Shown here is an 85-nucleotide sequence from Anaerosporomusa subterranea, a member of the family "c-di-GMP-I riboswitch aptamer".
GEMM was predicted in a large-scale screen for bacterial structured RNA regulatory elements.
The family's consensus secondary structure is taken from published work.
RNA sequence: CCAUAUAUCUGGCAAACCUACCGAAAGGUAGCGACGCAAAGCCAUGGGUCUAAGGGCGUAAGCCAAUGAUUGCCAGGUUGCAACU
Numbered sequence: 001c002c003a004u005a006u007a008u009c010u011g012g013c014a015a016a017c018c019u020a021c022c023g024a025a026a027g028g029u030a031g032c033g034a035c036g037c038a039a040a041g042c043c044a045u046g047g048g049u050c051u052a053a054g055g056g057c058g059u060a061a062g063c064c065a066a067u068g069a070u071u072g073c074c075a076g077g078u079u080g081c082a083a084c085u
Base pairs, nucleotide, nucleotide: 012037013036018031019030020029021028022027040079041078042077043076045075046074047073048070049069050068055064056063057062